[Rfam]
Nucleotides: 036
Stems, first nucleotide, its partner, number of pairs: 002021004010035003
Number, partner (000 for none) and nucleotide at each position: 001000a002021c003020c004019u005018c006000g007000g008000a009000a010035g011034c012033c013000g014000a015000a016000a017000a018005g019004a020003g021002g022000a023000u024000u025000a026000c027000a028000g029000a030000g031000u032000a033012g034011g035010c036000a
Record summary: Shown here is a 36-nucleotide RNA from Flavobacterium cheongpyeongense, a member of the family "DUF805b RNA". NCBI's taxonomy places the organism under Bacteria, Bacteroidota, Flavobacteriales, Flavobacteriaceae, Flavobacterium. It is annotated as a cis-regulatory element.